[Rfam]
RNA: TPP riboswitch aptamer (THI element)
Organism: Bacteroidaceae bacterium HV4-6-C5C
RNA sequence: CAUUGCUGUUAGGGGUGUUCCUAUAAGGAGCUGAGAUUAUACCCUUGAACCUGAUAUGUUGUAAUUGACAUCGUAGGGAAACGGUUCUUACUUCAG
Numbered sequence: 001c002a003u004u005g006c007u008g009u010u011a012g013g014g015g016u017g018u019u020c021c022u023a024u025a026a027g028g029a030g031c032u033g034a035g036a037u038u039a040u041a042c043c044c045u046u047g048a049a050c051c052u053g054a055u056a057u058g059u060u061g062u063a064a065u066u067g068a069c070a071u072c073g074u075a076g077g078g079a080a081a082c083g084g085u086u087c088u089u090a091c092u093u094c095a096g
Stems, first nucleotide, its partner, number of pairs: 006084005011045004016039001017031005050077004056071004
Dot-bracket structure: .....(((((((((.((((((.....))))).......)..))))....((((..((((........))))..))))..)))))............